[Rfam]
RNA sequence: CUGGAAAAAGCCAAACCUGCUGUGAAGCAGGGACGGAAAGCCACGGAUCUUCCCCGAAACGAAGACAGCCGGGUUACCCGAA
Numbered sequence: 001c002u003g004g005a006a007a008a009a010g011c012c013a014a015a016c017c018u019g020c021u022g023u024g025a026a027g028c029a030g031g032g033a034c035g036g037a038a039a040g041c042c043a044c045g046g047a048u049c050u051u052c053c054c055c056g057a058a059a060c061g062a063a064g065a066c067a068g069c070c071g072g073g074u075u076a077c078c079c080g081a082a
Stems, first nucleotide, its partner, number of pairs: 003079002011036002016031006034068001039075004044071003048065002
Source information: Shown here is an 82-nucleotide RNA sequence from Desulfoluna spongiiphila, a member of the family "c-di-GMP-I-GGC riboswitch aptamer". Lineage of the source: Bacteria > Pseudomonadati > Desulfobacterales > Desulfolunaceae > Desulfoluna. The family's consensus secondary structure is taken from published work.